[Rfam]
RNA sequence: AAGGUUUGGUCAAAGUCAAACUUUGUAAAGUUUGACCAACUUUCUAGGAAAAAAUAUCAACAUCUACAAUACUAAAGCUAUAUGGUAUGAAAAUUAAUUUCAUGAUGCAUCUAACAAUACUGAUUUUAUAUUGUGAAUCUUGAUAUUUUUUCCUAUAAACUUAGUCAAAGUUAACAAAGUUUGACUUUGACCAAAUCUUA
Numbered sequence: 001a002a003g004g005u006u007u008g009g010u011c012a013a014a015g016u017c018a019a020a021c022u023u024u025g026u027a028a029a030g031u032u033u034g035a036c037c038a039a040c041u042u043u044c045u046a047g048g049a050a051a052a053a054a055u056a057u058c059a060a061c062a063u064c065u066a067c068a069a070u071a072c073u074a075a076a077g078c079u080a081u082a083u084g085g086u087a088u089g090a091a092a093a094u095u096a097a098u099u100u101c102a103u104g105a106u107g108c109a110u111c112u113a114a115c116a117a118u119a120c121u122g123a124u125u126u127u128a129u130a131u132u133g134u135g136a137a138u139c140u141u142g143a144u145a146u147u148u149u150u151u152c153c154u155a156u157a158a159a160c161u162u163a164g165u166c167a168a169a170g171u172u173a174a175c176a177a178a179g180u181u182u183g184a185c186u187u188u189g190a191c192c193a194a195a196u197c198u199u200a
Stems, first nucleotide, its partner, number of pairs: 005195005011189016031169005045155008055145003059141002062138002065135004074126003
Description: MIR1435 microRNA precursor family: a 200-nucleotide RNA sequence from Triticum aestivum. Rfam links the family to the GO terms miRNA-mediated post-transcriptional gene silencing and RISC complex. The base pairs follow the family's consensus structure, which was predicted with RNAalifold.